Rfam assigns this 59-nucleotide sequence from Monodelphis domestica to the family "mir-7360 microRNA precursor family".
Its family is annotated with RISC complex and miRNA-mediated post-transcriptional gene silencing in the Gene Ontology.
The match comes from Rfam's covariance-model search (54 bits).
Nucleotides: 059
Stems, first nucleotide, its partner, number of pairs: 002056002006052004013046009023037002026034002
Number, partner (000 for none) and nucleotide at each position: 001000u002056c003055c004000a005000u006052u007051c008050u009049g010000u011000a012000u013046g014045u015044a016043u017042a018041a019040u020039a021038u022000u023037u024036u025000u026034a027033u028000a029000a030000a031000a032000a033027a034026u035000u036024g037023a038021a039020u040019a041018u042017u043016g044015u045014a046013u047000u048000c049009c050008a051007g052006a053000a054000u055003g056002g057000u058000g059000u